Rfam assigns this 91-nucleotide RNA from Medicago truncatula to the family "MIR5298 microRNA precursor family".
Pairs were carried over by alignment from the consensus structure, which was predicted with RNAalifold.
[Rfam]
RNA sequence: UUACGUUUUCUUCAUUUUCUAUUGGAAUUUUUCUGGGAAUUUUGUUGUUGAAGCUUGACGGAGAUAAUAUGAAGGUGAAAAAGAGGAGAAA
Numbered sequence: 001u002u003a004c005g006u007u008u009u010c011u012u013c014a015u016u017u018u019c020u021a022u023u024g025g026a027a028u029u030u031u032u033c034u035g036g037g038a039a040u041u042u043u044g045u046u047g048u049u050g051a052a053g054c055u056u057g058a059c060g061g062a063g064a065u066a067a068u069a070u071g072a073a074g075g076u077g078a079a080a081a082a083g084a085g086g087a088g089a090a091a
Stems, first nucleotide, its partner, number of pairs: 006084004011079009037056002040053004